RNA sequence: UGGGUUCUGUCAAUGGCACUGGAAGAAUUCACGGGGGAAUUUAGCAACAGUCCCGUGGAACUCCCGUGUCAUACACAGCGUCCG
Numbered sequence: 001u002g003g004g005u006u007c008u009g010u011c012a013a014u015g016g017c018a019c020u021g022g023a024a025g026a027a028u029u030c031a032c033g034g035g036g037g038a039a040u041u042u043a044g045c046a047a048c049a050g051u052c053c054c055g056u057g058g059a060a061c062u063c064c065c066g067u068g069u070c071a072u073a074c075a076c077a078g079c080g081u082c083c084g
Stems, first nucleotide, its partner, number of pairs: 003082003007078004013072006021064003025061001029058006

mir-263 microRNA precursor family: an 84-nucleotide RNA from Nasonia vitripennis. NCBI's taxonomy places the organism under Eukaryota, Opisthokonta, Ecdysozoa, Pterygota, Nasonia. Pairs were carried over by alignment from the consensus structure, which was predicted with RNAalifold. Rfam 15.1 lists 368 matches to the family in 211 species. Gene Ontology terms of the family: miRNA-mediated post-transcriptional gene silencing and RISC complex.